[Rfam]
RNA sequence: GCAUCCAAAUCUUCCCCACUCAUUGCAAUAUAAUGCUGAGCUGGGGACAUGGGAUGCAACAGGGAAGCAGAGGAAAUCCAGACAAGCUCCAUUUCACCAGAGGGACUUGUCUCUACACCUUUGCAACACUC
Numbered sequence: 001g002c003a004u005c006c007a008a009a010u011c012u013u014c015c016c017c018a019c020u021c022a023u024u025g026c027a028a029u030a031u032a033a034u035g036c037u038g039a040g041c042u043g044g045g046g047a048c049a050u051g052g053g054a055u056g057c058a059a060c061a062g063g064g065a066a067g068c069a070g071a072g073g074a075a076a077u078c079c080a081g082a083c084a085a086g087c088u089c090c091a092u093u094u095c096a097c098c099a100g101a102g103g104g105a106c107u108u109g110u111c112u113c114u115a116c117a118c119c120u121u122u123g124c125a126a127c128a129c130u131c
Stems, first nucleotide, its partner, number of pairs: 001057005013047006067124006080112007094103002
A member of the RNA family "Small nucleolar RNA SNORA55" from Piaya cayana, 131 nucleotides long. The family's RNA type in Rfam is H/ACA-box small nucleolar RNA. Rfam links the family to the GO terms nucleolus and RNA processing.